[Rfam]
RNA sequence: CCGGCACCGGUUCACGCCCUCGUUCGCAGGGUAGGGCGACCCGGCGGCC
Numbered sequence: 001c002c003g004g005c006a007c008c009g010g011u012u013c014a015c016g017c018c019c020u021c022g023u024u025c026g027c028a029g030g031g032u033a034g035g036g037c038g039a040c041c042c043g044g045c046g047g048c049c
Base pairs, nucleotide, nucleotide: 003049004048005047007044008043009042010041015038016037017036018035019034020033

Rfam assigns this 49-nucleotide RNA from Candidatus Protofrankia californiensis to the family "L31-Actinobacteria ribosomal protein leader". Taxonomically the source falls in Protofrankia (Bacteria, Actinomycetota, Actinomycetes, Frankiaceae). For this family Rfam cites "Discovery of 20 novel ribosomal leader candidates in bacteria and archaea" (Eckert and Weinberg, BMC Microbiol, 2020). By type it is a cis-regulatory leader.